[Rfam]
Rfam assigns this 115-nucleotide RNA sequence from Trifolium medium to the family "MIR2593 microRNA precursor family". It scores 102 bits against the family's covariance model.
RNA sequence: AUAUAAGCAAUAAUUCACUUUAUAGAUUCAUUGAAUAAUUGAUGUAUCUAGUCUAUGAUAUAGACCGGAUACAUCAUUUAUUCAAUGAACCUAAAAAGUGAAUUGUUGCUUAUAU
Number, nucleotide and partner (000 for none) at each position: 001a000002u114003a113004u112005a111006a110007g109008c000009a107010a106011u105012a104013a103014u000015u101016c100017a099018c098019u097020u096021u095022a000023u093024a092025g091026a000027u089028u088029c087030a086031u085032u084033g083034a082035a081036u080037a079038a078039u000040u076041g075042a074043u073044g072045u000046a000047u000048c000049u067050a000051g065052u064053c000054u000055a000056u000057g000058a000059u000060a000061u000062a000063g000064a052065c051066c000067g049068g000069a000070u000071a000072c044073a043074u042075c041076a040077u000078u038079u037080a036081u035082u034083c033084a032085a031086u030087g029088a028089a027090c000091c025092u024093a023094a000095a021096a020097a019098g018099u017100g016101a015102a000103u013104u012105g011106u010107u009108g000109c007110u006111u005112a004113u003114a002115u000